[Rfam]
RNA sequence: CUGAAGGCCGCGUCUGGGUCAAUUGCGACAUGCAACACCCACUCGCCCUCAUCGCCCCACCUGAGGUGGGCACACUGGAUGAGGGCGACCGCGUCACCAUCAG
Numbered sequence: 001c002u003g004a005a006g007g008c009c010g011c012g013u014c015u016g017g018g019u020c021a022a023u024u025g026c027g028a029c030a031u032g033c034a035a036c037a038c039c040c041a042c043u044c045g046c047c048c049u050c051a052u053c054g055c056c057c058c059a060c061c062u063g064a065g066g067u068g069g070g071c072a073c074a075c076u077g078g079a080u081g082a083g084g085g086c087g088a089c090c091g092c093g094u095c096a097c098c099a100u101c102a103g
Stems, first nucleotide, its partner, number of pairs: 001103004009093004015041004023035005043088011
This 103-nucleotide sequence belongs to the Rfam family "L4-Archaeoglobi ribosomal protein leades".
By type it is a cis-regulatory leader.
The family's consensus secondary structure is taken from published work.
For this family Rfam cites "Discovery of 20 novel ribosomal leader candidates in bacteria and archaea" (Eckert and Weinberg, BMC Microbiol, 2020).
Rfam's curators put it in the seed alignment.